[Rfam]
RNA sequence: AAUCUGUUUCAGGGCGAGGUGUAAAUCCUCACCGGCGGUAAUGGGCAUAUUUUUGCCACAAGUCCGCGAGCGGGUAAUCCCCGCAGAUUUCGGUUAGAUUCCGAAACCGACGGUAUAGUCCGGAUGAAAGAAACAAAAC
Numbered sequence: 001a002a003u004c005u006g007u008u009u010c011a012g013g014g015c016g017a018g019g020u021g022u023a024a025a026u027c028c029u030c031a032c033c034g035g036c037g038g039u040a041a042u043g044g045g046c047a048u049a050u051u052u053u054u055g056c057c058a059c060a061a062g063u064c065c066g067c068g069a070g071c072g073g074g075u076a077a078u079c080c081c082c083g084c085a086g087a088u089u090u091c092g093g094u095u096a097g098a099u100u101c102c103g104a105a106a107c108c109g110a111c112g113g114u115a116u117a118g119u120c121c122g123g124a125u126g127a128a129a130g131a132a133a134c135a136a137a138a139c
Stems, first nucleotide, its partner, number of pairs: 003137001005135006017029003031119002033109002035067004062107002070084003089105005111122003
RNA: FMN riboswitch aptamer (RFN element)